[Rfam]
This 79-nucleotide sequence from Paenibacillus apis belongs to the Rfam family "Glycine riboswitch aptamer". Pairs were carried over by alignment from the consensus structure.
RNA sequence: GGAGCAGCUUCUGGAGAGACCGCGGAUGUCGCGGCGCCGAAGGGUUCACAAUCUCAGGCAAAAGGACAGAAGAGUAGAA
Dot-bracket structure: .......((((((......((((.......)))).(((((..(((.....))))).))).......)))))).......